[Rfam]
RNA sequence: AGGCAACCACCUUUGUGAAUCGCUCGGAAGGUAGGUGUUAUUCUGAUCGUAAAUCAAUUUCUUAUGCUCUUCAGAUUUGUUGAGAUUCAAAGUCUAUGAAGCUGGUCUAGUAAGCAUAAGUAUAUU
Numbered sequence: 001a002g003g004c005a006a007c008c009a010c011c012u013u014u015g016u017g018a019a020u021c022g023c024u025c026g027g028a029a030g031g032u033a034g035g036u037g038u039u040a041u042u043c044u045g046a047u048c049g050u051a052a053a054u055c056a057a058u059u060u061c062u063u064a065u066g067c068u069c070u071u072c073a074g075a076u077u078u079g080u081u082g083a084g085a086u087u088c089a090a091a092g093u094c095u096a097u098g099a100a101g102c103u104g105g106u107c108u109a110g111u112a113a114g115c116a117u118a119a120g121u122a123u124a125u126u
Stems, first nucleotide, its partner, number of pairs: 002039004007035002009032006016026002061120003066115003073108005079102003084094003
Dot-bracket structure: .((((.((((((((.((.......)))))))).)))))).....................(((..(((....(((((.(((..(((.....))).....))).)))))....)))..)))......